[Rfam]
RNA sequence: UUGAAUGUGAAUUGAUUUAUGUUUGGAUACAUUAACGUAAAAGUGAUUCUCGACAUUUAAUGUUGUUUGGACAA
Numbered sequence: 001u002u003g004a005a006u007g008u009g010a011a012u013u014g015a016u017u018u019a020u021g022u023u024u025g026g027a028u029a030c031a032u033u034a035a036c037g038u039a040a041a042a043g044u045g046a047u048u049c050u051c052g053a054c055a056u057u058u059a060a061u062g063u064u065g066u067u068u069g070g071a072c073a074a
Stems, first nucleotide, its partner, number of pairs: 011061005017055001022052001025049004030045004
RNA: MIR5272 microRNA precursor family